[Rfam]
RNA: Alphaproteobacteria transfer-messenger RNA
RNA sequence: GGGCUUUCAUUUUGCGCGCCGGCUGCCUAUAUUGGCUGUGUCAGCUUGCCUGACUAUGGCGAUAAAUGGGCGAUGGAAUAAGCCGUUCGGACCCGGGGGCGGUACCCGGCGCCUCCACCAAAAACCGCUCUGAGGAGCGGCUUUUGCUGGGGGCGAAAUAGGAUCGACGAAGGUGUAAAGAUCGUACUUUUGCCCGGCAUUGUACCACCGUUAUCGGGCUAAACUUAUAGUUGCCAACGACAACUAUGCGGAAGCACGUCUCGCUGCUUAAUGCGGUGCGAUAGCUUCAAAUCAAGCCUUAGGCCGUCGCAGGUCUAAGCGGGGUUCGGGGGUACCUGGCAACAGAAACCUCCACU
Numbered sequence: 001g002g003g004c005u006u007u008c009a010u011u012u013u014g015c016g017c018g019c020c021g022g023c024u025g026c027c028u029a030u031a032u033u034g035g036c037u038g039u040g041u042c043a044g045c046u047u048g049c050c051u052g053a054c055u056a057u058g059g060c061g062a063u064a065a066a067u068g069g070g071c072g073a074u075g076g077a078a079u080a081a082g083c084c085g086u087u088c089g090g091a092c093c094c095g096g097g098g099g100c101g102g103u104a105c106c107c108g109g110c111g112c113c114u115c116c117a118c119c120a121a122a123a124a125c126c127g128c129u130c131u132g133a134g135g136a137g138c139g140g141c142u143u144u145u146g147c148u149g150g151g152g153g154c155g156a157a158a159u160a161g162g163a164u165c166g167a168c169g170a171a172g173g174u175g176u177a178a179a180g181a182u183c184g185u186a187c188u189u190u191u192g193c194c195c196g197g198c199a200u201u202g203u204a205c206c207a208c209c210g211u212u213a214u215c216g217g218g219c220u221a222a223a224c225u226u227a228u229a230g231u232u233g234c235c236a237a238c239g240a241c242a243a244c245u246a247u248g249c250g251g252a253a254g255c256a257c258g259u260c261u262c263g264c265u266g267c268u269u270a271a272u273g274c275g276g277u278g279c280g281a282u283a284g285c286u287u288c289a290a291a292u293c294a295a296g297c298c299u300u301a302g303g304c305c306g307u308c309g310c311a312g313g314u315c316u317a318a319g320c321g322g323g324g325u326u327c328g329g330g331g332g333u334a335c336c337u338g339g340c341a342a343c344a345g346a347a348a349c350c351u352c353c354a355c356u
Stems, first nucleotide, its partner, number of pairs: 040054005058194005068187001070185005083173002087170003093109005110155007195210003200221001202219001205217002322337004328353006